[Rfam]
RNA sequence: AAUAAGUGCAGCCAUGUAUAUUCGUGCUCAACGUUUGACCGUCCGUCUUAUUUAAAAAAAUUAUGAAAAAUUUAAAAAUAUUUAGUUACACAUAAAGUACUAUUCAUGUUUUAUCAUCUAAUAGCAACAAAAAAUACUAAUUAUAAAAAAUUUUCAAAUAAGAUGAACGGUUAAACGUUGAACAUGAAUAGUGAAAAACUUAUU
Numbered sequence: 001a002a003u004a005a006g007u008g009c010a011g012c013c014a015u016g017u018a019u020a021u022u023c024g025u026g027c028u029c030a031a032c033g034u035u036u037g038a039c040c041g042u043c044c045g046u047c048u049u050a051u052u053u054a055a056a057a058a059a060a061u062u063a064u065g066a067a068a069a070a071u072u073u074a075a076a077a078a079u080a081u082u083u084a085g086u087u088a089c090a091c092a093u094a095a096a097g098u099a100c101u102a103u104u105c106a107u108g109u110u111u112u113a114u115c116a117u118c119u120a121a122u123a124g125c126a127a128c129a130a131a132a133a134a135u136a137c138u139a140a141u142u143a144u145a146a147a148a149a150a151u152u153u154u155c156a157a158a159u160a161a162g163a164u165g166a167a168c169g170g171u172u173a174a175a176c177g178u179u180g181a182a183c184a185u186g187a188a189u190a191g192u193g194a195a196a197a198a199c200u201u202a203u204u
Stems, first nucleotide, its partner, number of pairs: 028181005034175009044165010
Shown here is a 204-nucleotide RNA from Oryza sativa, a member of the family "MIR812 microRNA precursor family".
A search with the family's covariance model found it, with a score of 118 bits.
Rfam links the family to the GO terms miRNA-mediated post-transcriptional gene silencing and RISC complex.